[Rfam]
RNA: Bacterial RNase P class A
Organism: Spongiactinospora gelatinilytica
RNA sequence: CGAGCCGGCCGGGCGGCCGCGUCGGGCCCCUUUCCAUGGGGGCCCGCCGAGGAAGGUCCGGGCUCCACAGGGCAGGGUGAUCGGUAACACCGACCCGGGGCGACCCGCGGGAAAGUGCCACAGAAAGCAGACCGCCUCCCGGUUCGCCGGGAGGUAAGGGUGAAAGGGUGGUGUAAGAGACCACCAGCGCCCACGGUGACGUGGGCGGCUCGGUAAACCCCACCCGGAGCAAGGUCAAGAAGGGGACGGCCCGAAAGGGCCGCCUCCGCGCGCGACGUUCGAGGGCGGCCCGCCCGAGCCGCGCGGGUAGAUCGCUUGAGGCCGUCGGCAACGACGGCCCUAGAUGGAUGGCCGCCGCCCGCCCCCGGGCGGGCACAGAACCCGGCCUACAGGCCGACUCGUCCG
Numbered sequence: 001c002g003a004g005c006c007g008g009c010c011g012g013g014c015g016g017c018c019g020c021g022u023c024g025g026g027c028c029c030c031u032u033u034c035c036a037u038g039g040g041g042g043c044c045c046g047c048c049g050a051g052g053a054a055g056g057u058c059c060g061g062g063c064u065c066c067a068c069a070g071g072g073c074a075g076g077g078u079g080a081u082c083g084g085u086a087a088c089a090c091c092g093a094c095c096c097g098g099g100g101c102g103a104c105c106c107g108c109g110g111g112a113a114a115g116u117g118c119c120a121c122a123g124a125a126a127g128c129a130g131a132c133c134g135c136c137u138c139c140c141g142g143u144u145c146g147c148c149g150g151g152a153g154g155u156a157a158g159g160g161u162g163a164a165a166g167g168g169u170g171g172u173g174u175a176a177g178a179g180a181c182c183a184c185c186a187g188c189g190c191c192c193a194c195g196g197u198g199a200c201g202u203g204g205g206c207g208g209c210u211c212g213g214u215a216a217a218c219c220c221c222a223c224c225c226g227g228a229g230c231a232a233g234g235u236c237a238a239g240a241a242g243g244g245g246a247c248g249g250c251c252c253g254a255a256a257g258g259g260c261c262g263c264c265u266c267c268g269c270g271c272g273c274g275a276c277g278u279u280c281g282a283g284g285g286c287g288g289c290c291c292g293c294c295c296g297a298g299c300c301g302c303g304c305g306g307g308u309a310g311a312u313c314g315c316u317u318g319a320g321g322c323c324g325u326c327g328g329c330a331a332c333g334a335c336g337g338c339c340c341u342a343g344a345u346g347g348a349u350g351g352c353c354g355c356c357g358c359c360c361g362c363c364c365c366c367g368g369g370c371g372g373g374c375a376c377a378g379a380a381c382c383c384g385g386c387c388u389a390c391a392g393g394c395c396g397a398c399u400c401g402u403c404c405g
Stems, first nucleotide, its partner, number of pairs: 001401004006396005011390001012356007020049002023046009054388003058385005063229004070291004075225005081093004095109001096107004110220002115218002117214003132159002134155009167185006187209001188207008233313004243304001245302001248299001283295004320339008